[Rfam]
RNA: tRNA
RNA sequence: GAUCCACUAGCUCAGUCGGUAGAGCACAUGACUUUUAAUCAUGGUGUCCGGGGUUCGAUUCCCCGGUGGAUCA
Numbered sequence: 001g002a003u004c005c006a007c008u009a010g011c012u013c014a015g016u017c018g019g020u021a022g023a024g025c026a027c028a029u030g031a032c033u034u035u036u037a038a039u040c041a042u043g044g045u046g047u048c049c050g051g052g053g054u055u056c057g058a059u060u061c062c063c064c065g066g067u068g069g070a071u072c073a
Stems, first nucleotide, its partner, number of pairs: 001072007010025004027043005049065005